A member of the RNA family "HIV-1 stem-loop 4 packaging signal" from Nothoprocta perdicaria, 20 nucleotides long.

[Rfam]
RNA sequence: UAGGUGCGAGAGCGUCAGUC
Numbered sequence: 001u002a003g004g005u006g007c008g009a010g011a012g013c014g015u016c017a018g019u020c
Stems, first nucleotide, its partner, number of pairs: 003016005
The family's RNA type in Rfam is cis-regulatory element. The match comes from Rfam's covariance-model search (31 bits). Taxonomically the source falls in Nothoprocta (Eukaryota, Craniata, Tetrapoda, Saurischia). For this family Rfam cites "MS3D structural elucidation of the HIV-1 packaging signal" (Yu et al., Proc Natl Acad Sci U S A, 2008).